[Rfam]
RNA sequence: AGGCACGUUAAUCCAAGAGCUGUGGCUCCGUGCAGUAGUUCCAGCUCUCCAACAACGUGCAAGAGCAACGGGAAGGACUUUGACUGCUGGGCCUCUUCUGCCCAUUGCUGUCACUCUACCCUCCUAUAUAU
Numbered sequence: 001a002g003g004c005a006c007g008u009u010a011a012u013c014c015a016a017g018a019g020c021u022g023u024g025g026c027u028c029c030g031u032g033c034a035g036u037a038g039u040u041c042c043a044g045c046u047c048u049c050c051a052a053c054a055a056c057g058u059g060c061a062a063g064a065g066c067a068a069c070g071g072g073a074a075g076g077a078c079u080u081u082g083a084c085u086g087c088u089g090g091g092c093c094u095c096u097u098c099u100g101c102c103c104a105u106u107g108c109u110g111u112c113a114c115u116c117u118a119c120c121c122u123c124c125u126a127u128a129u130a131u
Stems, first nucleotide, its partner, number of pairs: 018040002020035005071124003075120002086111002088104004

This 131-nucleotide sequence from Semnornis frantzii belongs to the Rfam family "Small nucleolar RNA SNORA44".
The source organism's lineage runs through Eukaryota, Euteleostomi, Coelurosauria, Ramphastidae and Semnornis.
About the family: ACA44 is a member of the H/ACA class of snoRNA that guide the sites of modification of uridines to pseudouridines.
The family's RNA type in Rfam is H/ACA-box small nucleolar RNA.
Rfam links the family to the GO terms nucleolus and RNA processing.
Rfam 15.1 lists 1,056 matches to the family in 599 species.
A search with the family's covariance model found it, with a score of 69 bits.
Pairs were carried over by alignment from the consensus structure, which was predicted with PFOLD.
The literature on the family includes a 2001 paper in EMBO J by Huttenhofer et al., "RNomics: an experimental approach that identifies 201 candidates for novel, small, non-messenger RNAs in mouse".
The family is grouped with related families in Rfam's "SNORA44 clan".